Shown here is a 130-nucleotide RNA from Thermolongibacillus altinsuensis, a member of the family "PyrR binding site". It is annotated as a cis-regulatory element. The family's consensus secondary structure is taken from published work. Rfam describes the family as follows. This family represents the PyrR binding site and terminator structure. This RNA structure is found upstream of a variety of genes involved in pyrimidine biosynthesis and transport. The alignment also includes a portion of the antiterminator structure.
RNA sequence: AUCACCUUUUAAUUAAGUCCAGCGAGACUUAAAAGGGUGGAGUUGCGCAAAUGGAAAAACGGUUCAUUCAAGAAGCGUUUUUGUCUUCAUGCGCAAAACACCCUGUCCAUUUGACAGGGUGUUUUUUGUU
Number, nucleotide and partner (000 for none) at each position: 001a000002u000003c000004a000005c036006c035007u034008u033009u032010u000011a000012a000013u000014u031015a030016a029017g028018u027019c026020c000021a000022g000023c000024g000025a000026g019027a018028c017029u016030u015031a014032a009033a008034a007035g006036g005037g000038u000039g000040g000041a000042g000043u000044u000045g000046c000047g000048c000049a000050a000051a000052u000053g084054g000055a082056a081057a080058a079059a078060c077061g076062g000063u074064u073065c072066a000067u000068u000069c000070a000071a000072g065073a064074a063075g000076c061077g060078u059079u058080u057081u056082u055083g000084u053085c000086u000087u000088c000089a000090u000091g000092c000093g000094c000095a125096a124097a123098a122099c121100a120101c119102c118103c117104u116105g115106u114107c113108c000109a000110u000111u000112u000113g107114a106115c105116a104117g103118g102119g101120u100121g099122u098123u097124u096125u095126u000127u000128g000129u000130u000